[Rfam]
RNA sequence: UAUAUUCCGCGUGACUGGCGAAAGUCCUCUUCCUUUGUAUGGAGAUGGAUGUGGGAAACCACUCUGAUUGAAGAGUGAACAACCACAAGGGAGCGCGGAAGCCGAUUUCAAAGCCGUUCGCCUGGGCAGCCUUU
Numbered sequence: 001u002a003u004a005u006u007c008c009g010c011g012u013g014a015c016u017g018g019c020g021a022a023a024g025u026c027c028u029c030u031u032c033c034u035u036u037g038u039a040u041g042g043a044g045a046u047g048g049a050u051g052u053g054g055g056a057a058a059c060c061a062c063u064c065u066g067a068u069u070g071a072a073g074a075g076u077g078a079a080c081a082a083c084c085a086c087a088a089g090g091g092a093g094c095g096c097g098g099a100a101g102c103c104g105a106u107u108u109c110a111a112a113g114c115c116g117u118u119c120g121c122c123u124g125g126g127c128a129g130c131c132u133u134u
Base pairs, nucleotide, nucleotide: 005100006099007098008097009096010095011094012093015090016089017122018121019120020119021118051086052085053084054083113127114126115125

This 134-nucleotide sequence from a Parvibaculaceae bacterium belongs to the Rfam family "ZMP/ZTP riboswitch aptamer (pfl RNA motif)". The literature on the family includes a 2020 paper in Cell Chem Biol by Tran et al., "Parallel Discovery Strategies Provide a Basis for Riboswitch Ligand Design". A search with the family's covariance model found it, with a score of 52 bits.